[Rfam]
RNA sequence: GUAAAUGACUCGGGGUGCCGUUUCUUUCCAAAGAAAGGGCUGAGAAAAACCCGUCGAACCUGAACUGGAUAAUGCCAGCGGAGGGAAGUCAGAUGCCUGACCG
Numbered sequence: 001g002u003a004a005a006u007g008a009c010u011c012g013g014g015g016u017g018c019c020g021u022u023u024c025u026u027u028c029c030a031a032a033g034a035a036a037g038g039g040c041u042g043a044g045a046a047a048a049a050c051c052c053g054u055c056g057a058a059c060c061u062g063a064a065c066u067g068g069a070u071a072a073u074g075c076c077a078g079c080g081g082a083g084g085g086a087a088g089u090c091a092g093a094u095g096c097c098u099g100a101c102c103g
Stems, first nucleotide, its partner, number of pairs: 006091005011053004016047001017040003021036005059084003065078004
The record is a 103-nucleotide RNA from Erwinia billingiae, which matches "TPP riboswitch aptamer (THI element)" in Rfam.